[Rfam]
The family of this 107-nucleotide RNA sequence from Rhododendron simsii is "Small nucleolar RNA snoR100". It is annotated as an H/ACA-box small nucleolar RNA. A search with the family's covariance model found it, with a score of 70 bits. Rfam 15.1 lists 1,851 matches to the family in 220 species. The source organism's lineage runs through Eukaryota, Streptophytina, Euphyllophyta, Mesangiospermae and Rhododendron.

RNA sequence: CAAUGAAGGAAACAUGGUAAUGUGCACAUAAAUUAAAUUGAGUCUCUAGGCUUGCCUCUCUGAUGCCAUUCAGUUUUGAUUUGGGGGCAUGGUUUCACAGUAAAACA
Numbered sequence: 001c002a003a004u005g006a007a008g009g010a011a012a013c014a015u016g017g018u019a020a021u022g023u024g025c026a027c028a029u030a031a032a033u034u035a036a037a038u039u040g041a042g043u044c045u046c047u048a049g050g051c052u053u054g055c056c057u058c059u060c061u062g063a064u065g066c067c068a069u070u071c072a073g074u075u076u077u078g079a080u081u082u083g084g085g086g087g088c089a090u091g092g093u094u095u096c097a098c099a100g101u102a103a104a105a106c107a
Stems, first nucleotide, its partner, number of pairs: 013024003040090001042088003050080001052078001054074002
Gene Ontology terms of the family: nucleolus and RNA processing. On this family, see Marker et al., Curr Biol 2002: "Experimental RNomics: identification of 140 candidates for small non-messenger RNAs in the plant Arabidopsis thaliana". Pairs were carried over by alignment from the consensus structure, which was predicted with WAR.